A member of the RNA family "L31-Coriobacteria ribosomal protein leader", 33 nucleotides long. Rfam's curators put it in the seed alignment. For this family Rfam cites "Discovery of 20 novel ribosomal leader candidates in bacteria and archaea" (Eckert and Weinberg, BMC Microbiol, 2020).
RNA sequence: GCCUUGGUCGGAAACUAAGGCAUACCAAAGGAG
Dot-bracket structure: ((((((((.....))))))))............
About this RNA: The family's consensus secondary structure is taken from published work.